[Rfam]
RNA sequence: UGAGUAAGCCAGAUGGUCGCGCUUUUUAAGUGAGGAAAGUCCGGGCUUCAUAGGGCAGGGUGCCAGUUAACGACUGGUGGAGGCGACUCUAAGGAUAGUGCAACAGAGAUAGACCGCCUGUAUUUUACAGGUAAGGAUGGAAAGGUGAGGUAAGAGCUCACCGCUUUUAUGGUAACAUAAAAGGCUAUGUAAACCCCACCUGAAGCAAGGCCCAAUAGAGAGACAUAUAAGGGGCUGCCCGUCCCGUCUCGGGUAAGGCCGCAUGAUGACAUUGGCGACAAUGUACCAAGAUAGAUGACCGUUUAACACAGAACCCGGCUUAUAGACUUGCUCACAUA
Numbered sequence: 001u002g003a004g005u006a007a008g009c010c011a012g013a014u015g016g017u018c019g020c021g022c023u024u025u026u027u028a029a030g031u032g033a034g035g036a037a038a039g040u041c042c043g044g045g046c047u048u049c050a051u052a053g054g055g056c057a058g059g060g061u062g063c064c065a066g067u068u069a070a071c072g073a074c075u076g077g078u079g080g081a082g083g084c085g086a087c088u089c090u091a092a093g094g095a096u097a098g099u100g101c102a103a104c105a106g107a108g109a110u111a112g113a114c115c116g117c118c119u120g121u122a123u124u125u126u127a128c129a130g131g132u133a134a135g136g137a138u139g140g141a142a143a144g145g146u147g148a149g150g151u152a153a154g155a156g157c158u159c160a161c162c163g164c165u166u167u168u169a170u171g172g173u174a175a176c177a178u179a180a181a182a183g184g185c186u187a188u189g190u191a192a193a194c195c196c197c198a199c200c201u202g203a204a205g206c207a208a209g210g211c212c213c214a215a216u217a218g219a220g221a222g223a224c225a226u227a228u229a230a231g232g233g234g235c236u237g238c239c240c241g242u243c244c245c246g247u248c249u250c251g252g253g254u255a256a257g258g259c260c261g262c263a264u265g266a267u268g269a270c271a272u273u274g275g276c277g278a279c280a281a282u283g284u285a286c287c288a289a290g291a292u293a294g295a296u297g298a299c300c301g302u303u304u305a306a307c308a309c310a311g312a313a314c315c316c317g318g319c320u321u322a323u324a325g326a327c328u329u330g331c332u333c334a335c336a337u338a
Stems, first nucleotide, its partner, number of pairs: 001334008010325001011323001012303007020032005037321003041318005046205004053240004058201005063077005078092001079090004093196002098194002100190003114136002116132007144162006163185001164183008209260004220250005231245005269284006
This 338-nucleotide RNA from Tyzzerella sp. An114 belongs to the Rfam family "Bacterial RNase P class A".
The base pairs follow the family's consensus structure, which is taken from published work.
Taxonomically the source falls in Tyzzerella (Bacteria, Bacillati, Bacillota, Lachnospiraceae).
Rfam describes the family as follows. Ribonuclease P (RNase P) is a ubiquitous endoribonuclease, found in archaea, bacteria and eukarya as well as chloroplasts and mitochondria. Its best characterised activity is the generation of mature 5'-ends of tRNAs by cleaving the 5'-leader elements of precursor-tRNAs.
It is annotated as a ribozyme.